[Rfam]
RNA sequence: CAUCCCAGUGCUUCCCUCAUGUCAUCCCAGUGCGUGACACUGGGAUCCAGUUUAUUUCAUCAUGGACAUUAUUUUAUGCUUCUAGAAUCCGUUGUCCAUUGAAUAAUUUGCAAAUACUUUUAUAUCUGGAUUCCAGUGUCACGCACUGGAAUGACACCAUUAUUGGAAUAAAUC
Numbered sequence: 001c002a003u004c005c006c007a008g009u010g011c012u013u014c015c016c017u018c019a020u021g022u023c024a025u026c027c028c029a030g031u032g033c034g035u036g037a038c039a040c041u042g043g044g045a046u047c048c049a050g051u052u053u054a055u056u057u058c059a060u061c062a063u064g065g066a067c068a069u070u071a072u073u074u075u076a077u078g079c080u081u082c083u084a085g086a087a088u089c090c091g092u093u094g095u096c097c098a099u100u101g102a103a104u105a106a107u108u109u110g111c112a113a114a115u116a117c118u119u120u121u122a123u124a125u126c127u128g129g130a131u132u133c134c135a136g137u138g139u140c141a142c143g144c145a146c147u148g149g150a151a152u153g154a155c156a157c158c159a160u161u162a163u164u165g166g167a168a169u170a171a172a173u174c
Stems, first nucleotide, its partner, number of pairs: 012168004020156006027149024
Shown here is a 174-nucleotide RNA from Trichonephila clavata, a member of the family "Wolbachia sRNA 46".
NCBI's taxonomy places the organism under Eukaryota, Chelicerata, Araneae, Nephilidae, Trichonephila.
On this family, see Mayoral et al., Proc Natl Acad Sci U S A 2014: "Wolbachia small noncoding RNAs and their role in cross-kingdom communications".